[Rfam]
RNA sequence: UAGUUAUCAAGAGUGACCGAGAGAACUGGCUCUAAGACGUCACAGCAACCUGUAUGUAUGCAAGGUGCUCCAACCAGCAAAGCAGAAGCUUUGGAUGAUAAAAC
Number, nucleotide and partner (000 for none) at each position: 001u000002a000003g000004u101005u100006a099007u098008c097009a000010a000011g000012a000013g043014u042015g041016a040017c039018c000019g000020a000021g032022a031023g030024a000025a000026c077027u076028g075029g074030c023031u022032c021033u000034a000035a000036g000037a000038c000039g017040u016041c015042a014043c013044a069045g068046c067047a066048a000049c065050c064051u062052g061053u060054a059055u000056g000057u000058a000059u054060g053061c052062a051063a000064g050065g049066u047067g046068c045069u044070c000071c000072a000073a096074c029075c028076a027077g026078c093079a092080a091081a090082g089083c088084a000085g000086a000087a000088g083089c082090u081091u080092u079093g078094g000095a000096u073097g008098a007099u006100a005101a004102a000103a000104c000
RNA: SAM riboswitch aptamer (S box leader)